The record is a 52-nucleotide RNA, which matches "L31-Gammaproteobacteria ribosomal protein leader" in Rfam. The base pairs follow the family's consensus structure, which is taken from published work. It is annotated as a cis-regulatory leader. For this family Rfam cites "Discovery of 20 novel ribosomal leader candidates in bacteria and archaea" (Eckert and Weinberg, BMC Microbiol, 2020). Clan: Ribosomal Protein L31 Leader clan.
[Rfam]
RNA sequence: CGUAUGGUGUUCAGCUUCGGGCUGGAUGGCGAUACGGCCUUUUUUAUGAGGU
Number, nucleotide and partner (000 for none) at each position: 001c036002g035003u034004a033005u032006g000007g030008u029009g000010u000011u025012c024013a023014g022015c021016u020017u000018c000019g000020g016021g015022c014023u013024g012025g011026a000027u000028g000029g008030c007031g000032a005033u004034a003035c002036g001037g000038c000039c000040u000041u000042u000043u000044u000045u000046a000047u000048g000049a000050g000051g000052u000